[Rfam]
RNA sequence: UUCCAGUGAUGAACUCUGUUUUGUGUUUGUGUCUGGGCCAAUGAACUACACUGAUGGGAUUGAGGAACUGUGGAA
Number, nucleotide and partner (000 for none) at each position: 001u075002u074003c073004c072005a000006g000007u000008g000009a000010u000011g000012a000013a000014c000015u000016c000017u000018g000019u000020u000021u000022u000023g000024u000025g000026u000027u000028u000029g000030u000031g000032u000033c000034u000035g000036g000037g000038c000039c000040a000041a000042u000043g000044a000045a000046c000047u000048a000049c000050a000051c000052u000053g000054a000055u000056g000057g000058g000059a000060u000061u000062g000063a000064g000065g000066a000067a000068c000069u000070g000071u000072g004073g003074a002075a001

Small nucleolar RNA SNORD66: a 75-nucleotide RNA from Triplophysa rosa. On this family, see Huttenhofer et al., EMBO J 2001: "RNomics: an experimental approach that identifies 201 candidates for novel, small, non-messenger RNAs in mouse". The organism belongs to Triplophysa, within Eukaryota. Rfam 15.1 lists 1,346 matches to the family in 614 species. Rfam's curators write: snoRNA HBII-142 is part of the C/D family of snoRNAs. It is the human orthologue of the mouse MBII-142 snoRNA and is predicted to guide 2'O-ribose methylation of small 18S rRNA at residue C1272. The base pairs follow the family's consensus structure, which was predicted with RNAalifold.